[Rfam]
RNA sequence: GACCCAUCAGGAGCGCCAGCGCCCGCUCUUCCGCGGGACGACGAGGUGAGGGGAGGAUCGAAGAUUCGGCGGAUGCCCCUCCGUGCCGGCUCCGGGCGCGCACACAGCCUACAAAACCUGCGGGCGACCGCAGAACAGAGGGGCUGUGACCGGGGAAC
Number, nucleotide and partner (000 for none) at each position: 001g000002a000003c000004c000005c000006a000007u000008c000009a000010g000011g000012a000013g000014c000015g000016c000017c000018a000019g000020c000021g000022c037023c036024c035025g034026c033027u000028c000029u000030u000031c000032c000033g026034c025035g024036g023037g022038a000039c000040g000041a000042c000043g000044a000045g000046g000047u000048g081049a080050g079051g078052g077053g000054a000055g000056g000057a000058u069059c068060g067061a066062a000063g000064a000065u000066u061067c060068g059069g058070c000071g000072g000073a000074u000075g000076c000077c052078c051079c050080u049081c048082c100083g099084u098085g097086c096087c095088g000089g000090c000091u000092c000093c000094g000095g087096g086097c085098g084099c083100g082101c000102a000103c148104a147105c146106a145107g144108c143109c142110u000111a000112c000113a000114a000115a000116a000117c000118c133119u132120g131121c130122g129123g128124g000125c000126g000127a000128c123129c122130g121131c120132a119133g118134a000135a000136c000137a000138g000139a000140g000141g000142g109143g108144c107145u106146g105147u104148g103149a000150c000151c000152g000153g000154g000155g000156a000157a000158c000
Overview: This 158-nucleotide RNA from bacterium 1xD42-67 belongs to the Rfam family "glmS glucosamine-6-phosphate activated ribozyme aptamer". The family's RNA type in Rfam is riboswitch. It scores 67 bits against the family's covariance model.